[Rfam]
RNA sequence: UUAACUCAAAUUUCUAUGCAACUGGAACAGCGCCUCUAGCGGCAAACGUAAGCAAACGUUCCAACUCCAUACAAAUUUGAGUUA
Numbered sequence: 001u002u003a004a005c006u007c008a009a010a011u012u013u014c015u016a017u018g019c020a021a022c023u024g025g026a027a028c029a030g031c032g033c034c035u036c037u038a039g040c041g042g043c044a045a046a047c048g049u050a051a052g053c054a055a056a057c058g059u060u061c062c063a064a065c066u067c068c069a070u071a072c073a074a075a076u077u078u079g080a081g082u083u084a
Stems, first nucleotide, its partner, number of pairs: 008078006015071002018068001020066001023063006034052002039047001
mir-2807 microRNA precursor family: an 84-nucleotide RNA sequence from Bombyx mori. The family's consensus secondary structure was predicted with RNAalifold. A search with the family's covariance model found it, with a score of 60 bits. Rfam links the family to the GO terms RISC complex and miRNA-mediated post-transcriptional gene silencing.